The record is a 50-nucleotide RNA from Rhodobacterales bacterium Y4I, which matches "SAM/SAH riboswitch aptamer" in Rfam. Gene Ontology terms of the family: S-adenosylmethionine metabolic process and regulation of gene expression. Pairs were carried over by alignment from the consensus structure, which is taken from published work. A reference for the family is Weickhmann et al. (2019), "The structure of the SAM/SAH-binding riboswitch", Nucleic Acids Res. Rfam's curators put it in the seed alignment.
RNA sequence: UACCUGCCACAACGGCUUCCUGGCGUGGCGGGCUGAACCUCAAUGGAGCA
Numbered sequence: 001u002a003c004c005u006g007c008c009a010c011a012a013c014g015g016c017u018u019c020c021u022g023g024c025g026u027g028g029c030g031g032g033c034u035g036a037a038c039c040u041c042a043a044u045g046g047a048g049c050a
Stems, first nucleotide, its partner, number of pairs: 004032002006029005013022002015049003019046002